SAM-I/IV (S-adenosyl methionine) riboswitch aptamer: a 101-nucleotide RNA from a Flavobacteriaceae bacterium.
Gene Ontology terms of the family: S-adenosylmethionine metabolic process and regulation of gene expression.
Pairs were carried over by alignment from the consensus structure, which is taken from published work.

[Rfam]
RNA sequence: ACGAGGCAUCUAGAACACAAGAACACUAAUGUGUGCCAACCUAGUCAUAGUAAGACCAAGGUGGCUUAGAAUGCGGACAGAAGUCAAAAUAAAAGACUAAA
Numbered sequence: 001a002c003g004a005g006g007c008a009u010c011u012a013g014a015a016c017a018c019a020a021g022a023a024c025a026c027u028a029a030u031g032u033g034u035g036c037c038a039a040c041c042u043a044g045u046c047a048u049a050g051u052a053a054g055a056c057c058a059a060g061g062u063g064g065c066u067u068a069g070a071a072u073g074c075g076g077a078c079a080g081a082a083g084u085c086a087a088a089a090u091a092a093a094a095g096a097c098u099a100a101a
Base pairs, nucleotide, nucleotide: 006074007073008072009071015034016033017032018031019030035065036064037063040061041060042059044056045055051095076085077084078083

For this family Rfam cites "The aptamer core of SAM-IV riboswitches mimics the ligand-binding site of SAM-I riboswitches" (Weinberg et al., RNA, 2008).